Nucleotides: 118
Stems, first nucleotide, its partner, number of pairs: 001082004009041001011040006021032002042068003047064003051060002085107001087105003091102004
Number, partner (000 for none) and nucleotide at each position: 001082g002081g003080u004079c005000a006000a007000g008000a009041g010000u011040c012039c013038a014037g015036c016035c017000c018000g019000c020000a021032c022031g023000c024000c025000u026000u027000c028000g029000g030000a031022c032021g033000u034000g035016g036015g037014u038013u039012g040011g041009c042068g043067g044066c045000a046000a047064c048063c049062g050000c051060g052059u053000c054000a055000c056000c057000c058000g059052a060051c061000a062049c063048g064047g065000u066044g067043c068042c069000c070000u071000c072000c073000g074000a075000a076000g077000a078000a079004g080003a081002c082001c083000u084000g085107g086000a087105c088104c089103g090000u091102c092101g093100u094099c095000a096000c097000c098000g099094g100093g101092c102091g103089c104088g105087g106000c107085c108000a109000a110000g111000u112000g113000g114000g115000g116000c117000u118000u
This 118-nucleotide RNA from Pedococcus badiiscoriae belongs to the Rfam family "SAM (S-adenosyl methionine) riboswitch aptamer".
SAM-IV is a mRNA element that regulates gene expression via direct sensing of S-adenosylmethionine (SAM or AdoMet). SAM-IV riboswitches share conserved nucleotide positions with the previously described SAM-I riboswitches sequence analysis and molecular recognition experiments suggest that SAM-I and SAM-IV riboswitches share similar ligand binding sites, but have different scaffolds.
The family's consensus secondary structure is taken from published work.
The source organism's lineage runs through Bacteria, Actinomycetota, Actinomycetes, Micrococcales and Pedococcus.
On this family, see Weinberg et al., RNA 2008: "The aptamer core of SAM-IV riboswitches mimics the ligand-binding site of SAM-I riboswitches".
The match comes from Rfam's covariance-model search (56 bits).